[Rfam]
RNA: mir-2788 microRNA precursor family
RNA sequence: AGAGUUCGUUGGGGCAAAAUUGGGGUUUCUAAGCGGCAUGUGCCGAGAGAGUAAUCGCUCCACCCACGCCUACCUUUCUUCAGCGGGAGGGUGAGGGCGCUGGAUGCAAUGCCCUUGGAAAUCCCAAAAAUGCACAACAGAU
Numbered sequence: 001a002g003a004g005u006u007c008g009u010u011g012g013g014g015c016a017a018a019a020u021u022g023g024g025g026u027u028u029c030u031a032a033g034c035g036g037c038a039u040g041u042g043c044c045g046a047g048a049g050a051g052u053a054a055u056c057g058c059u060c061c062a063c064c065c066a067c068g069c070c071u072a073c074c075u076u077u078c079u080u081c082a083g084c085g086g087g088a089g090g091g092u093g094a095g096g097g098c099g100c101u102g103g104a105u106g107c108a109a110u111g112c113c114c115u116u117g118g119a120a121a122u123c124c125c126a127a128a129a130a131u132g133c134a135c136a137a138c139a140g141a142u
Base pairs, nucleotide, nucleotide: 008138009137010136011135014133015132016131021126022125023124024123025122026121027120028119029118031116032115033114035113036112037111038110039109041108042107043106